[Rfam]
RNA sequence: CUGCAGACUUUUCCAGCGAGGCUCAGCCUGCUGUGGCUCCGUCCUUUCCUGUCUUGUCUGCUAGAGAGACGCGAGGCAGUUUGAGGCCCCGCUGCGACCCCUCAGCGGCAGGGUUAUAGGUUCGCCUCCGACAAAA
Numbered sequence: 001c002u003g004c005a006g007a008c009u010u011u012u013c014c015a016g017c018g019a020g021g022c023u024c025a026g027c028c029u030g031c032u033g034u035g036g037c038u039c040c041g042u043c044c045u046u047u048c049c050u051g052u053c054u055u056g057u058c059u060g061c062u063a064g065a066g067a068g069a070c071g072c073g074a075g076g077c078a079g080u081u082u083g084a085g086g087c088c089c090c091g092c093u094g095c096g097a098c099c100c101c102u103c104a105g106c107g108g109c110a111g112g113g114u115u116a117u118a119g120g121u122u123c124g125c126c127u128c129c130g131a132c133a134a135a136a
Stems, first nucleotide, its partner, number of pairs: 003061006019045003025038004073128004087113003091109002094106002
Rfam assigns this 136-nucleotide RNA sequence from Mola mola to the family "Small nucleolar RNA SNORA9". Rfam describes the family as follows. ACA9 is a member of the H/ACA class of snoRNA that guide the sites of modification of uridines to pseudouridines. Rfam 15.1 lists 1,202 matches to the family in 518 species. Pairs were carried over by alignment from the consensus structure, which was predicted with PFOLD. Its family is annotated with RNA processing and nucleolus in the Gene Ontology.